[Rfam]
RNA sequence: GGAUGCCAUGAGGUAUCUGAUGCUUGGUCUGCUUUCAUGGCCUUGUUUCUCGUUAGAUUGGCAUACAUCAAGAAGGAAACAUAUUUUUGCGACACUGGCUGCUCUCAUAGAAGGAGCUUCCUGUUACUAUACCCCAUUUACACAU
Number, nucleotide and partner (000 for none) at each position: 001g000002g000003a000004u063005g062006c061007c060008a059009u057010g000011a000012g000013g000014u000015a000016u000017c000018u000019g049020a048021u000022g046023c045024u000025u000026g042027g041028u040029c039030u000031g038032c000033u000034u000035u000036c000037a000038u031039g029040g028041c027042c026043u000044u000045g023046u022047u000048u020049c019050u000051c000052g000053u000054u000055a000056g000057a009058u000059u008060g007061g006062c005063a004064u000065a000066c000067a000068u000069c000070a000071a000072g000073a000074a000075g000076g000077a138078a137079a000080c000081a000082u000083a000084u000085u000086u000087u000088u000089g000090c000091g000092a000093c000094a124095c123096u000097g121098g120099c000100u000101g117102c116103u115104c114105u113106c000107a000108u000109a000110g000111a000112a000113g105114g104115a103116g102117c101118u000119u000120c098121c097122u000123g095124u094125u000126a000127c000128u000129a000130u000131a000132c000133c000134c000135c000136a000137u078138u077139u000140a000141c000142a000143c000144a000145u000
The family of this 145-nucleotide sequence from Hordeum vulgare is "Small nucleolar RNA F1/F2/snoR5a". From the family's description: This family contains F1, F2 and snoR5a sequences, all of which are members of the the H/ACA class of snoRNA that guide the sites of modification of uridines to pseudouridines. It is annotated as an H/ACA-box small nucleolar RNA.